[Rfam]
A member of the RNA family "MIR1520 microRNA precursor family" from Hibiscus trionum, 114 nucleotides long.
The source organism's lineage runs through Eukaryota, Streptophyta, Tracheophyta, Pentapetalae and Hibiscus.
RNA sequence: CUCCAUUUAGAUAGUGACACAUAUCAUCAUCUGAUUGGAUGAGUAUUUUUUAAAAAUUUAAUUUAUCUAAUUAAUAUUUUUUAACCAAUCAGAUAGUGACACGUGCCACCAUCA
Numbered sequence: 001c002u003c004c005a006u007u008u009a010g011a012u013a014g015u016g017a018c019a020c021a022u023a024u025c026a027u028c029a030u031c032u033g034a035u036u037g038g039a040u041g042a043g044u045a046u047u048u049u050u051u052a053a054a055a056a057u058u059u060a061a062u063u064u065a066u067c068u069a070a071u072u073a074a075u076a077u078u079u080u081u082u083a084a085c086c087a088a089u090c091a092g093a094u095a096g097u098g099a100c101a102c103g104u105g106c107c108a109c110c111a112u113c114a
Base pairs, nucleotide, nucleotide: 016106018105019104022101025098026097027096029094030093031092032091034089035088036087